[Rfam]
RNA sequence: GGGUUGCGGAGGGUGGGCCCCGGGUUGGUGGCAGCCAUUUCUCAUCUAACCCUAAUUGAGACAGGCGUAGGCGCUGUGCUUUUGGUUACCGCGCGCUGUUUUUCUCGCUGACUUUCAGCGGGCGGAAAAGCCUCGGCCUACCGCCAUCCACCAUCCAGUCUGCAACAAACAAAAAAUGUCAGCCGCUGGCUCGCUCACCUCUCCCGGGAACCUGCGGUGGUCCGCCCGCCCAGCCCCAGUGCCCCGCCUGAGGCCGCGGUCGGCCCGGUGCUUCUCCGGAGGUGUCCAUUGCCGCCGUGAAGAGUUGGGCUCUGUCAGCCGCGGGUCGCUCGGUGGGCCGAGGCAUGGCUGUAACCGCAGGGAAAGGAACGGAGUGGGGUCCCCGCGCGCGGUGCGCUUCCCUGAGCUGUGGGACUUGCACCCGGGACUCGGCUCAGACAUCC
Numbered sequence: 001g002g003g004u005u006g007c008g009g010a011g012g013g014u015g016g017g018c019c020c021c022g023g024g025u026u027g028g029u030g031g032c033a034g035c036c037a038u039u040u041c042u043c044a045u046c047u048a049a050c051c052c053u054a055a056u057u058g059a060g061a062c063a064g065g066c067g068u069a070g071g072c073g074c075u076g077u078g079c080u081u082u083u084g085g086u087u088a089c090c091g092c093g094c095g096c097u098g099u100u101u102u103u104c105u106c107g108c109u110g111a112c113u114u115u116c117a118g119c120g121g122g123c124g125g126a127a128a129a130g131c132c133u134c135g136g137c138c139u140a141c142c143g144c145c146a147u148c149c150a151c152c153a154u155c156c157a158g159u160c161u162g163c164a165a166c167a168a169a170c171a172a173a174a175a176a177u178g179u180c181a182g183c184c185g186c187u188g189g190c191u192c193g194c195u196c197a198c199c200u201c202u203c204c205c206g207g208g209a210a211c212c213u214g215c216g217g218u219g220g221u222c223c224g225c226c227c228g229c230c231c232a233g234c235c236c237c238a239g240u241g242c243c244c245c246g247c248c249u250g251a252g253g254c255c256g257c258g259g260u261c262g263g264c265c266c267g268g269u270g271c272u273u274c275u276c277c278g279g280a281g282g283u284g285u286c287c288a289u290u291g292c293c294g295c296c297g298u299g300a301a302g303a304g305u306u307g308g309g310c311u312c313u314g315u316c317a318g319c320c321g322c323g324g325g326u327c328g329c330u331c332g333g334u335g336g337g338c339c340g341a342g343g344c345a346u347g348g349c350u351g352u353a354a355c356c357g358c359a360g361g362g363a364a365a366g367g368a369a370c371g372g373a374g375u376g377g378g379g380u381c382c383c384c385g386c387g388c389g390c391g392g393u394g395c396g397c398u399u400c401c402c403u404g405a406g407c408u409g410u411g412g413g414a415c416u417u418g419c420a421c422c423c424g425g426g427a428c429u430c431g432g433c434u435c436a437g438a439c440a441u442c443c
Stems, first nucleotide, its partner, number of pairs: 018208003022204003027199005033191005078131005090124003094120005107183006113176003211361007224349003228344001230343002234336002236333002239331001243325005255299005261294004267287002301313004372435004377430007392421005399414004
RNA: Vertebrate telomerase RNA